[Rfam]
Nucleotides: 073
Stems, first nucleotide, its partner, number of pairs: 010026004016064006045054002
Number, partner (000 for none) and nucleotide at each position: 001000u002000u003000u004000u005000u006000c007000a008000u009000a010026g011025g012024g013023a014000a015000u016064g017063a018062g019061g020060u021059u022000c023013u024012c025011c026010c027000a028000u029000g030000g031000c032000u033000a034000c035000g036000g037000c038000c039000u040000a041000a042000a043000c044000u045054g046053c047000u048000u049000a050000u051000a052000c053046g054045c055000u056000g057000a058000u059021g060020a061019c062018u063017u064016c065000u066000g067000c068000a069000u070000a071000a072000c073000g

Rfam assigns this 73-nucleotide sequence from Lacrimispora algidixylanolytica to the family "Fluoride riboswitch aptamer (crcB RNA motif)". It scores 40 bits against the family's covariance model.